[Rfam]
RNA sequence: GAGAACUGAUGGUUCGAAGAGUCGAAUGAGAGGGUAACGCCUCGAAAGGCUCUCCCUAAUACUCCGAAUAGCGACAAGAUGGGGAAGCAUCUAGUCGUUAUAAGCUCGGUGAAGUCGGCUGAACGUUGCCGUAACAUGUAAGGCUGACGAAAGCUCUCCAGAGGUGGGGGUGCAGCGGAUAGGCCGGGGGUCUAUAAA
Numbered sequence: 001g002a003g004a005a006c007u008g009a010u011g012g013u014u015c016g017a018a019g020a021g022u023c024g025a026a027u028g029a030g031a032g033g034g035u036a037a038c039g040c041c042u043c044g045a046a047a048g049g050c051u052c053u054c055c056c057u058a059a060u061a062c063u064c065c066g067a068a069u070a071g072c073g074a075c076a077a078g079a080u081g082g083g084g085a086a087g088c089a090u091c092u093a094g095u096c097g098u099u100a101u102a103a104g105c106u107c108g109g110u111g112a113a114g115u116c117g118g119c120u121g122a123a124c125g126u127u128g129c130c131g132u133a134a135c136a137u138g139u140a141a142g143g144c145u146g147a148c149g150a151a152a153g154c155u156c157u158c159c160a161g162a163g164g165u166g167g168g169g170g171u172g173c174a175g176c177g178g179a180u181a182g183g184c185c186g187g188g189g190g191u192c193u194a195u196a197a198a
Base pairs, nucleotide, nucleotide: 018053019052020051021050022049023048032042033041034040054190055189056188057187064109065108066107067106068101069100070099071098072097073096074095075094077092078091079090080089081088116186117185118184119183120182124177125176126175127174128173129172130149131148132147138144153171154170155169157168158167159166160165
Shown here is a 198-nucleotide sequence from Anoxybacteroides amylolyticum, a member of the family "Group II catalytic intron D1-D4-5".
The base pairs follow the family's consensus structure.
A search with the family's covariance model found it, with a score of 188 bits.
A reference for the family is Lehmann and Schmidt (2003), "Group II introns: structure and catalytic versatility of large natural ribozymes", Crit Rev Biochem Mol Biol.